Record summary
Rfam assigns this 94-nucleotide sequence from Geobacter sulfurreducens to the family "Selenocysteine transfer RNA". The sequence is in the family's curated seed alignment. Lineage of the source: Bacteria > Pseudomonadati > Thermodesulfobacteriota > Geobacter > Geobacter sulfurreducens.
RNA sequence: GGAGGUACGUCGGUCGCUGGUGGGCCGCCCGGUCUUCAAAACCGGUGUGGGGGUUGAGAAAACUCCCAGGUGGGUUCGAUUCCCAUGUACCUCC
Numbered sequence: 001g002g003a004g005g006u007a008c009g010u011c012g013g014u015c016g017c018u019g020g021u022g023g024g025c026c027g028c029c030c031g032g033u034c035u036u037c038a039a040a041a042c043c044g045g046u047g048u049g050g051g052g053g054u055u056g057a058g059a060a061a062a063c064u065c066c067c068a069g070g071u072g073g074g075u076u077c078g079a080u081u082c083c084c085a086u087g088u089a090c091c092u093c094c
Base pairs, nucleotide, nucleotide: 001094002093003092004091005090006089007088008087009086011027012026013025014024015023017022029045030044031043032042033041048068049067050066051065052064071085072084073083074082